The family of this 206-nucleotide RNA from Miscanthus lutarioriparius is "MIR6217 microRNA precursor family". The match comes from Rfam's covariance-model search (123 bits). Rfam links the family to the GO terms miRNA-mediated post-transcriptional gene silencing and RISC complex. Pairs were carried over by alignment from the consensus structure, which was predicted with RNAalifold.
RNA sequence: UGGCUACAAAAUAACUUAUUAUGUAGCCACUUUGAGUUACGAUAAUUACUAUGUUAAUUUACAAGAUUAUAGUAAUACCUUAUUUAGUGGUUUACUAUAACGUUAUUGUAAAUAUCCCCAUGUGUUAUAGUAAUCCAACUAUUAUAAAUUAGUAUAUAAAAUUAUCGUAAAUGGAGGAGGCUAGAGAAUAACUUAUUUUGUAGCUG
Numbered sequence: 001u002g003g004c005u006a007c008a009a010a011a012u013a014a015c016u017u018a019u020u021a022u023g024u025a026g027c028c029a030c031u032u033u034g035a036g037u038u039a040c041g042a043u044a045a046u047u048a049c050u051a052u053g054u055u056a057a058u059u060u061a062c063a064a065g066a067u068u069a070u071a072g073u074a075a076u077a078c079c080u081u082a083u084u085u086a087g088u089g090g091u092u093u094a095c096u097a098u099a100a101c102g103u104u105a106u107u108g109u110a111a112a113u114a115u116c117c118c119c120a121u122g123u124g125u126u127a128u129a130g131u132a133a134u135c136c137a138a139c140u141a142u143u144a145u146a147a148a149u150u151a152g153u154a155u156a157u158a159a160a161a162u163u164a165u166c167g168u169a170a171a172u173g174g175a176g177g178a179g180g181c182u183a184g185a186g187a188a189u190a191a192c193u194u195a196u197u198u199u200g201u202a203g204c205u206g
Stems, first nucleotide, its partner, number of pairs: 001206014016191005022185001024183005030177004037170011050156012087142006093132011108116001